[Rfam]
RNA sequence: AAAGCAGGUCAGGCAACCGCUGUCCUCUAGCCCGUUGGGCGUGAGGGGAGAGGAAAGUCCGGGCUCCACAGAGCAGGAUGCCGGCUAACGGCCGGACGCCGCGAGGCGAGGAAUAGGGCCACAGAGACGAGCGUAUUCAGUUACGGUGAAACGCGGUAACCUCCAUCCGGAGCAACACCAAAUAGGCAGGCGAUGAAGCGGCUCGCUGAGUCUGCGGGUAGGUGGCUUGAGCCGGCCAGCAAUGGCUGGCCUAGAGGAAUGGUUGCCCACGACAGAACCCGGCUUAUCGGCCCGCUUUUCCA
Numbered sequence: 001a002a003a004g005c006a007g008g009u010c011a012g013g014c015a016a017c018c019g020c021u022g023u024c025c026u027c028u029a030g031c032c033c034g035u036u037g038g039g040c041g042u043g044a045g046g047g048g049a050g051a052g053g054a055a056a057g058u059c060c061g062g063g064c065u066c067c068a069c070a071g072a073g074c075a076g077g078a079u080g081c082c083g084g085c086u087a088a089c090g091g092c093c094g095g096a097c098g099c100c101g102c103g104a105g106g107c108g109a110g111g112a113a114u115a116g117g118g119c120c121a122c123a124g125a126g127a128c129g130a131g132c133g134u135a136u137u138c139a140g141u142u143a144c145g146g147u148g149a150a151a152c153g154c155g156g157u158a159a160c161c162u163c164c165a166u167c168c169g170g171a172g173c174a175a176c177a178c179c180a181a182a183u184a185g186g187c188a189g190g191c192g193a194u195g196a197a198g199c200g201g202c203u204c205g206c207u208g209a210g211u212c213u214g215c216g217g218g219u220a221g222g223u224g225g226c227u228u229g230a231g232c233c234g235g236c237c238a239g240c241a242a243u244g245g246c247u248g249g250c251c252u253a254g255a256g257g258a259a260u261g262g263u264u265g266c267c268c269a270c271g272a273c274a275g276a277a278c279c280c281g282g283c284u285u286a287u288c289g290g291c292c293c294g295c296u297u298u299u300c301c302a
Stems, first nucleotide, its partner, number of pairs: 001298005007292004011287001012267007020050002023047005055285003059282005064172004071204004076168005081095005097108004111163002116161002118157003132145004176224004186215006197207003231250008

The family of this 302-nucleotide sequence from Thiobacillus sp. is "Bacterial RNase P class A". By type it is a ribozyme.